[Rfam]
This 113-nucleotide RNA sequence from Trema orientale belongs to the Rfam family "MIR390 microRNA precursor family". The organism belongs to Trema, within Eukaryota. Gene Ontology terms of the family: RISC complex and miRNA-mediated post-transcriptional gene silencing. A reference for the family is Gustafson et al. (2005), "ASRP: the Arabidopsis Small RNA Project Database", Nucleic Acids Res. The match comes from Rfam's covariance-model search (99 bits).
RNA sequence: AGGAAGAAUCUGUAAAGCUCAGGAGGGAUAGCGCCGUGACUUGUUACAUCAAAAACAAGGUUUCAAAAUGCUAGUACUGGCGCUAUCUAUCCUGAGUUUCACGGCUUCUUCUU
Numbered sequence: 001a002g003g004a005a006g007a008a009u010c011u012g013u014a015a016a017g018c019u020c021a022g023g024a025g026g027g028a029u030a031g032c033g034c035c036g037u038g039a040c041u042u043g044u045u046a047c048a049u050c051a052a053a054a055a056c057a058a059g060g061u062u063u064c065a066a067a068a069u070g071c072u073a074g075u076a077c078u079g080g081c082g083c084u085a086u087c088u089a090u091c092c093u094g095a096g097u098u099u100c101a102c103g104g105c106u107u108c109u110u111c112u113u
Stems, first nucleotide, its partner, number of pairs: 010104001016098009026088010